The family of this 95-nucleotide sequence from Paspalum vaginatum is "Small nucleolar RNA R16". A reference for the family is Galardi et al. (2002), "Purified box C/D snoRNPs are able to reproduce site-specific 2'-O-methylation of target RNA in vitro", Mol Cell Biol. Gene Ontology terms of the family: nucleolus and RNA processing. The family has 18 seed sequences and 884 matches in Rfam 15.1. A search with the family's covariance model found it, with a score of 69 bits. The family's consensus secondary structure was predicted with PFOLD. Taxonomically the source falls in Paspalum (Eukaryota, Spermatophyta, Magnoliopsida, Liliopsida). The family's RNA type in Rfam is C/D-box small nucleolar RNA.
[Rfam]
RNA sequence: GACGGCAAGUGAUGCUCAAAAUAUUUAUCCUACACACUCAAUGGAAAUACUACCAUGUGUGGACUCGUAAUCUCCGCUUAUUAUCUGAUGCCUUC
Numbered sequence: 001g002a003c004g005g006c007a008a009g010u011g012a013u014g015c016u017c018a019a020a021a022u023a024u025u026u027a028u029c030c031u032a033c034a035c036a037c038u039c040a041a042u043g044g045a046a047a048u049a050c051u052a053c054c055a056u057g058u059g060u061g062g063a064c065u066c067g068u069a070a071u072c073u074c075c076g077c078u079u080a081u082u083a084u085c086u087g088a089u090g091c092c093u094u095c
Stems, first nucleotide, its partner, number of pairs: 004092004